A member of the RNA family "Lysine riboswitch aptamer" from Brevibacillus centrosporus, 187 nucleotides long. A search with the family's covariance model found it, with a score of 92 bits. NCBI's taxonomy places the organism under Bacteria, Bacillati, Bacillota, Paenibacillaceae, Brevibacillus.
RNA sequence: AGUCUAAAUAGAGGUGCGCUGAGGAAGAGUACAUCUUUUCGCAAUCUGUCCGGGGGCAGGGAAGGAAGGAAAGGCUAAGGCGCCGAAGCUUUUGUUAUUCCCCUGAAUAACAAGGGUUGGGGUGCUCGUAAAAAAUGAUCAUCCUGUCACGAGAGCAGAACGGCUCUUGUGGAGCGCUAUUUACGAU
Numbered sequence: 001a002g003u004c005u006a007a008a009u010a011g012a013g014g015u016g017c018g019c020u021g022a023g024g025a026a027g028a029g030u031a032c033a034u035c036u037u038u039u040c041g042c043a044a045u046c047u048g049u050c051c052g053g054g055g056g057c058a059g060g061g062a063a064g065g066a067a068g069g070a071a072a073g074g075c076u077a078a079g080g081c082g083c084c085g086a087a088g089c090u091u092u093u094g095u096u097a098u099u100c101c102c103c104u105g106a107a108u109a110a111c112a113a114g115g116g117u118u119g120g121g122g123u124g125c126u127c128g129u130a131a132a133a134a135a136u137g138a139u140c141a142u143c144c145u146g147u148c149a150c151g152a153g154a155g156c157a158g159a160a161c162g163g164c165u166c167u168u169g170u171g172g173a174g175c176g177c178u179a180u181u182u183a184c185g186a187u
Base pairs, nucleotide, nucleotide: 006182007181008180009179010178011177016083017082018081019080020079023076024075032068034066035065036064037063038062039061087118088117089116090115091114092113093112094111095110096109097108098107119145120144121143122142123141124140126138127137128136129135147172148171149170150169151168152167153166154165155164